Description:
This 81-nucleotide RNA sequence from Thalictrum thalictroides belongs to the Rfam family "Small nucleolar RNA snoR53Y". The family's RNA type in Rfam is C/D-box small nucleolar RNA. Lineage of the source: Eukaryota > Euphyllophyta > Magnoliopsida > Ranunculaceae > Thalictrum. The family has 7 seed sequences and 513 matches in Rfam 15.1.

[Rfam]
RNA sequence: GUUCCCUAUGAUGUUUCAAACCAUGCUAAUAUUGAGACUUCAUCAUUGAUGAAUAUCUUAUUUUAAUGUUUUGAAGGAACU
Numbered sequence: 001g002u003u004c005c006c007u008a009u010g011a012u013g014u015u016u017c018a019a020a021c022c023a024u025g026c027u028a029a030u031a032u033u034g035a036g037a038c039u040u041c042a043u044c045a046u047u048g049a050u051g052a053a054u055a056u057c058u059u060a061u062u063u064u065a066a067u068g069u070u071u072u073g074a075a076g077g078a079a080c081u
Stems, first nucleotide, its partner, number of pairs: 001080005